[Rfam]
RNA sequence: AUAACGCGGCGGCACCUCUCCUCCUCCCUGGCGUCGCCGCAUCCUUCUUCCGAGGCGCAAGCCUCACCGGCAUCGGCGGUCUCUCUCCUCCUCCCUGAGACUGCCGUGACCUAGAACGGCGGCGCCACCUCCUCCCGGCGUCGCCGUUUUUU
Numbered sequence: 001a002u003a004a005c006g007c008g009g010c011g012g013c014a015c016c017u018c019u020c021c022u023c024c025u026c027c028c029u030g031g032c033g034u035c036g037c038c039g040c041a042u043c044c045u046u047c048u049u050c051c052g053a054g055g056c057g058c059a060a061g062c063c064u065c066a067c068c069g070g071c072a073u074c075g076g077c078g079g080u081c082u083c084u085c086u087c088c089u090c091c092u093c094c095c096u097g098a099g100a101c102u103g104c105c106g107u108g109a110c111c112u113a114g115a116a117c118g119g120c121g122g123c124g125c126c127a128c129c130u131c132c133u134c135c136c137g138g139c140g141u142c143g144c145c146g147u148u149u150u151u152u
Stems, first nucleotide, its partner, number of pairs: 007069003011065002015061001017059001074106010116147011

Alphaproteobacterial ar14: a 152-nucleotide sequence from Thalassococcus profundi.
The base pairs follow the family's consensus structure.
Rfam classes the family as a small RNA.
About the family: Smr14C2 was renamed NfeR1 (Nodule Formation Efficiency RNA) highly expressed in salt stress and during the symbiotic interaction on legume roots.